[Rfam]
RNA: U12 minor spliceosomal RNA
RNA sequence: UAGCAAGUAUUAUGAGUAAGGAAAACAACGAUCCGGGGUGAUGCCUGAAUCCUCACUGCUAAUGUGAGAAGUUUUGAGCAGGUAAAGGUUGCCCCCAAGGUGACCUGCCUACUUUGUGGGAUACCUGGGUGUGGUGGUCUGCACA
Numbered sequence: 001u002a003g004c005a006a007g008u009a010u011u012a013u014g015a016g017u018a019a020g021g022a023a024a025a026c027a028a029c030g031a032u033c034c035g036g037g038g039u040g041a042u043g044c045c046u047g048a049a050u051c052c053u054c055a056c057u058g059c060u061a062a063u064g065u066g067a068g069a070a071g072u073u074u075u076g077a078g079c080a081g082g083u084a085a086a087g088g089u090u091g092c093c094c095c096c097a098a099g100g101u102g103a104c105c106u107g108c109c110u111a112c113u114u115u116g117u118g119g120g121a122u123a124c125c126u127g128g129g130u131g132u133g134g135u136g137g138u139c140u141g142c143a144c145a
Stems, first nucleotide, its partner, number of pairs: 001018002030051003034047004052068005082142002086140007095129002098126005104120005
Dot-bracket structure: ((..............))...........(((.((((......)))).)))(((((.......))))).............((..(((((((..((.(((((.(((((.......))))).))))).))....)))))))))...